[Rfam]
RNA: Small nucleolar RNA SNORD56
RNA sequence: CUAAAACAAUGUCAAUAGUUUUCAUCAACAGCAGUUGAACCUAGUAAGUGUCGAUACUUUGGGUCUGAGUGG
Numbered sequence: 001c002u003a004a005a006a007c008a009a010u011g012u013c014a015a016u017a018g019u020u021u022u023c024a025u026c027a028a029c030a031g032c033a034g035u036u037g038a039a040c041c042u043a044g045u046a047a048g049u050g051u052c053g054a055u056a057c058u059u060u061g062g063g064u065c066u067g068a069g070u071g072g
Stems, first nucleotide, its partner, number of pairs: 002071002009025003